The record is a 214-nucleotide sequence from Halocynthiibacter styelae, which matches "FMN riboswitch aptamer (RFN element)" in Rfam.
Taxonomically the source falls in Halocynthiibacter (Bacteria, Pseudomonadota, Alphaproteobacteria, Paracoccaceae).
From the family's description: The RFN element is a highly conserved domain that is found frequently in the 5'-untranslated regions of prokaryotic mRNAs that encode for flavin mononucleotide (FMN) biosynthesis and transport proteins.
RNA sequence: CCCUGUUCUCAGGGCGGGGUGAAAUUCCCCACCGGCGGUAAGCGGGGUUACCCGUAAGUCCGCGAGCGGCCUGAAACUGUAUACAGUGUGUAUGCAUAAGAUGUGCAUGGUUUGUGCAUAGAUUGUGUAUCGCUUCUGCAUCCGGUUUCUGGUGUCAGCAGAUCCGGUGUAACUCCGGAACCGACGGUCAUAGUCCGGAUGAAAGAGAACGCGG
Number, nucleotide and partner (000 for none) at each position: 001c000002c000003c000004u211005g210006u209007u208008c207009u206010c205011a000012g000013g000014g000015c000016g000017g029018g028019g027020u000021g000022a000023a000024a000025u000026u000027c019028c018029c017030c000031a194032c193033c183034g182035g063036c062037g061038g060039u000040a000041a000042g000043c000044g000045g000046g000047g000048u000049u000050a000051c000052c000053c000054g000055u000056a000057a000058g181059u180060c038061c037062g036063c035064g000065a000066g159067c158068g000069g000070c000071c000072u000073g000074a000075a000076a000077c000078u000079g000080u000081a000082u000083a000084c000085a000086g000087u000088g000089u000090g000091u000092a000093u000094g000095c000096a000097u000098a000099a000100g000101a000102u000103g000104u000105g000106c000107a000108u000109g000110g000111u000112u000113u000114g000115u000116g000117c000118a000119u000120a000121g000122a000123u000124u000125g000126u000127g000128u000129a000130u000131c000132g000133c000134u000135u000136c000137u000138g000139c000140a000141u000142c000143c000144g000145g000146u000147u000148u000149c000150u000151g000152g000153u000154g000155u000156c000157a000158g067159c066160a000161g000162a000163u179164c178165c177166g176167g175168u000169g000170u000171a000172a000173c000174u000175c167176c166177g165178g164179a163180a059181c058182c034183g033184a000185c197186g196187g195188u000189c000190a000191u000192a000193g032194u031195c187196c186197g185198g000199a000200u000201g000202a000203a000204a000205g010206a009207g008208a007209a006210c005211g004212c000213g000214g000